[Rfam]
RNA sequence: UCUGACCAACAAGCUUUUUGCUCGUCUUAUACGCGAGCGCCAGGUAUAACCCGAGCCAAAAGCUCGUGCGUCACAGG
Numbered sequence: 001u002c003u004g005a006c007c008a009a010c011a012a013g014c015u016u017u018u019u020g021c022u023c024g025u026c027u028u029a030u031a032c033g034c035g036a037g038c039g040c041c042a043g044g045u046a047u048a049a050c051c052c053g054a055g056c057c058a059a060a061a062g063c064u065c066g067u068g069c070g071u072c073a074c075a076g077g
Stems, first nucleotide, its partner, number of pairs: 003073004009067001012064007020056001023053002027049006
RNA: mir-208 microRNA precursor family
Organism: Ursus americanus